[Rfam]
RNA sequence: GUCUUGCAAAUGGCAACGGCUAACGUCGAGUACCCUCGGCCUCUGGUCUACUGGCUUGAUCCGAUUAUUCAUUCCAGCUGUUUGUGAGUCCCGUAUUCAAUCUGGGCCGCACUGGCCAGGUUGAGGGCCAGACACUGCGCUACCCCGCAGGGCGACCGAUACACGGGUUCGUGAUCGAUUUUUCCCUGAAGGAGCGUCCCUCCCGGGGACGGAUUGCG
Numbered sequence: 001g002u003c004u005u006g007c008a009a010a011u012g013g014c015a016a017c018g019g020c021u022a023a024c025g026u027c028g029a030g031u032a033c034c035c036u037c038g039g040c041c042u043c044u045g046g047u048c049u050a051c052u053g054g055c056u057u058g059a060u061c062c063g064a065u066u067a068u069u070c071a072u073u074c075c076a077g078c079u080g081u082u083u084g085u086g087a088g089u090c091c092c093g094u095a096u097u098c099a100a101u102c103u104g105g106g107c108c109g110c111a112c113u114g115g116c117c118a119g120g121u122u123g124a125g126g127g128c129c130a131g132a133c134a135c136u137g138c139g140c141u142a143c144c145c146c147g148c149a150g151g152g153c154g155a156c157c158g159a160u161a162c163a164c165g166g167g168u169u170c171g172u173g174a175u176c177g178a179u180u181u182u183u184c185c186c187u188g189a190a191g192g193a194g195c196g197u198c199c200c201u202c203c204c205g206g207g208g209a210c211g212g213a214u215u216g217c218g
Base pairs, nucleotide, nucleotide: 018048019047020046021045022044025040026039027038028037029036030035051077052076053075057071058070059069060067088128089127091126092125098123099122100121101120102119103118104117105116148188149187150186151185152184155182157177158176159175160174162173163172164171165170199212200211203208
RNA: ilvB-OMG RNA
Organism: Seongchinamella unica